This 125-nucleotide sequence from Gossypium raimondii belongs to the Rfam family "Small nucleolar RNA SNORD14".
[Rfam]
RNA sequence: AGUCGAUGAUGAUAAGUUGUAAGGCUUGUUUCUCAAAACAUUCGCAGUGGCCGUCUAAGAGCUUUCGCCUUUCGCCGGGCUUGAGAGCUUGUGCUGCUUCCUUCCUUCCUUGGAUGUCUGAGACC
Number, nucleotide and partner (000 for none) at each position: 001a000002g124003u123004c122005g000006a000007u000008g000009a000010u000011g000012a000013u000014a000015a000016g000017u000018u000019g000020u000021a000022a000023g000024g000025c000026u000027u000028g000029u000030u000031u000032c000033u000034c000035a000036a000037a000038a000039c000040a000041u000042u000043c000044g000045c000046a000047g000048u000049g000050g000051c000052c000053g000054u000055c000056u000057a000058a000059g000060a000061g088062c087063u086064u085065u084066c083067g000068c000069c000070u000071u000072u000073c000074g000075c000076c000077g000078g000079g000080c000081u000082u000083g066084a065085g064086a063087g062088c061089u000090u000091g000092u000093g000094c000095u000096g000097c000098u000099u000100c000101c000102u000103u000104c000105c000106u000107u000108c000109c000110u000111u000112g000113g000114a000115u000116g000117u000118c000119u000120g000121a000122g004123a003124c002125c000

Source information: Rfam describes the family as follows. U14 small nucleolar RNA (U14 snoRNA) is required for early cleavages of eukaryotic precursor rRNAs. It scores 72 bits against the family's covariance model. By type it is a C/D-box small nucleolar RNA.